[Rfam]
RNA sequence: AUGAAUGGAUUCACCUAUGAGAUGACGUGGUUAUUCCACUUAGGUUGAGGACGUGGCAUCCUAUUAAUUUUGUGCGAUGGCUGGUAAUAGGAUGCUACGUCCUUGUCCUAAGUGGAACAACCAUGCUAUAUCACGGGUGAAUCUAUUCAU
Numbered sequence: 001a002u003g004a005a006u007g008g009a010u011u012c013a014c015c016u017a018u019g020a021g022a023u024g025a026c027g028u029g030g031u032u033a034u035u036c037c038a039c040u041u042a043g044g045u046u047g048a049g050g051a052c053g054u055g056g057c058a059u060c061c062u063a064u065u066a067a068u069u070u071u072g073u074g075c076g077a078u079g080g081c082u083g084g085u086a087a088u089a090g091g092a093u094g095c096u097a098c099g100u101c102c103u104u105g106u107c108c109u110a111a112g113u114g115g116a117a118c119a120a121c122c123a124u125g126c127u128a129u130a131u132c133a134c135g136g137g138u139g140a141a142u143c144u145a146u147u148c149a150u
Stems, first nucleotide, its partner, number of pairs: 001150002004147003008143008018133003022129003026125001028123005034117002038113002041110002044107001050101003056095011
Shown here is a 150-nucleotide RNA from Oryza glumipatula, a member of the family "MIR807 microRNA precursor family". Rfam links the family to the GO terms miRNA-mediated post-transcriptional gene silencing and RISC complex. Taxonomically the source falls in Oryza (Eukaryota, Euphyllophyta, Liliopsida, Oryzeae). The family's consensus secondary structure was predicted with WAR.